The family of this 82-nucleotide RNA from Thermogutta terrifontis is "c-di-GMP-I-GGC riboswitch aptamer". Taxonomically the source falls in Thermogutta (Bacteria, Planctomycetota, Planctomycetia, Pirellulales). Rfam 15.1 lists 1,298 matches to the family in 717 species.

[Rfam]
RNA sequence: CUCGAUAAAGGCAAACCGGUCGUAAGGCCGGGGCGCAAAGCUACGGGCCGGGUGGUCGCAUCCGGUCGCCGGGCUGCCGAAG
Numbered sequence: 001c002u003c004g005a006u007a008a009a010g011g012c013a014a015a016c017c018g019g020u021c022g023u024a025a026g027g028c029c030g031g032g033g034c035g036c037a038a039a040g041c042u043a044c045g046g047g048c049c050g051g052g053u054g055g056u057c058g059c060a061u062c063c064g065g066u067c068g069c070c071g072g073g074c075u076g077c078c079g080a081a082g
Base pairs, nucleotide, nucleotide: 001082003079004078011036012035016031017030018029019028020027021026034068039075040074041073042072044071045070046069047066048065049064050063051062052061053060